[Rfam]
RNA sequence: CCGGUCGUUCCGUCGGCCGUAGCCUACCUGUGCAUGCGUUGUUGGUAACGACGGCGUGUGAAGCCACGGGGACAACGUGUCGGGCCUUCGGGCCGCGUCUGCUUCCGCGAGGAAGGGGGCGUCAUCUGCCAACGUCACUGCGGAUGGGAUG
Numbered sequence: 001c002c003g004g005u006c007g008u009u010c011c012g013u014c015g016g017c018c019g020u021a022g023c024c025u026a027c028c029u030g031u032g033c034a035u036g037c038g039u040u041g042u043u044g045g046u047a048a049c050g051a052c053g054g055c056g057u058g059u060g061a062a063g064c065c066a067c068g069g070g071g072a073c074a075a076c077g078u079g080u081c082g083g084g085c086c087u088u089c090g091g092g093c094c095g096c097g098u099c100u101g102c103u104u105c106c107g108c109g110a111g112g113a114a115g116g117g118g119g120c121g122u123c124a125u126c127u128g129c130c131a132a133c134g135u136c137a138c139u140g141c142g143g144a145u146g147g148g149a150u151g
Base pairs, nucleotide, nucleotide: 002019003018004017005016006015007014028069029068030067031066032065033060034059035058036057037056038055039054040053041052042051043050044049083094084093085092086091096121097120098119099118105112106111125144126143127142128141129140